The family of this 98-nucleotide sequence from Alkalibaculum sporogenes is "SAM riboswitch aptamer (S box leader)".
[Rfam]
RNA sequence: ACCUUAUCCAGAGUGGUGGAGGGACUAGGCCCUGUGAAACCCGGCAACCAGCAGUAUGAAAUGGUGCUAAUACCUACAGAAUAUCUGAAUGAUGAGGG
Numbered sequence: 001a002c003c004u005u006a007u008c009c010a011g012a013g014u015g016g017u018g019g020a021g022g023g024a025c026u027a028g029g030c031c032c033u034g035u036g037a038a039a040c041c042c043g044g045c046a047a048c049c050a051g052c053a054g055u056a057u058g059a060a061a062u063g064g065u066g067c068u069a070a071u072a073c074c075u076a077c078a079g080a081a082u083a084u085c086u087g088a089a090u091g092a093u094g095a096g097g098g
Base pairs, nucleotide, nucleotide: 002097003096004095005094006093007092008091013042015041016040017039021032022031023030026076027075028074029073043068044067045066046065048064049063052058053057072090077087078086079085080084